The family of this 131-nucleotide sequence from Tupaia belangeri is "Small nucleolar RNA SNORA17". snoRNA ACA 17 belongs to the H/ACA family of snoRNAs and is predicted to guide pseudouridylation of the 28S rRNA at positions U4659 and U4598. It shares the same host gene together with ACA43. A reference for the family is Ofengand and Bakin (1997), "Mapping to nucleotide resolution of pseudouridine residues in large subunit ribosomal RNAs from representative eukaryotes, prokaryotes, archaebacteria, mitochondria and chloroplasts", J Mol Biol. The sequence is in the family's curated seed alignment. Rfam links the family to the GO terms RNA processing and nucleolus. Clan: SNORA17 clan.
RNA sequence: CCUGCCCCUAGAGGCGUUGCAGAUGUGGCUGCUGUGUCACAGCUGCGUCAGUAGUGGGCAGAGAGCAAGAGGCUAUGUCUACGCUCAGUGUUCUGACUCGUGAACAUUUGAAUGAUUAGUAGCCUCACACU
Dot-bracket structure: .(((((.(((..(((...((((.((((((......)))))).)))))))..)))..))))).......((((((((.....((.(((((((((........))))).)))).))....)))))))).....